let-7 microRNA precursor family: an 81-nucleotide sequence from Hucho hucho.
Rfam links the family to the GO terms RISC complex and miRNA-mediated post-transcriptional gene silencing.
Taxonomically the source falls in Hucho (Eukaryota, Chordata, Teleostei, Clupeocephala).
Its Rfam clan is "let-7 microRNA precursor clan".
[Rfam]
RNA sequence: GUGGGAUGAGGUAGUAGGUUGGACAGUUUUAAGGGCACACCCACACUGGGAGAUAACUAUACAACCUACUGUCUUUCUCAA
Numbered sequence: 001g002u003g004g005g006a007u008g009a010g011g012u013a014g015u016a017g018g019u020u021g022g023a024c025a026g027u028u029u030u031a032a033g034g035g036c037a038c039a040c041c042c043a044c045a046c047u048g049g050g051a052g053a054u055a056a057c058u059a060u061a062c063a064a065c066c067u068a069c070u071g072u073c074u075u076u077c078u079c080a081a
Stems, first nucleotide, its partner, number of pairs: 002080005008075014023060001025058003033042003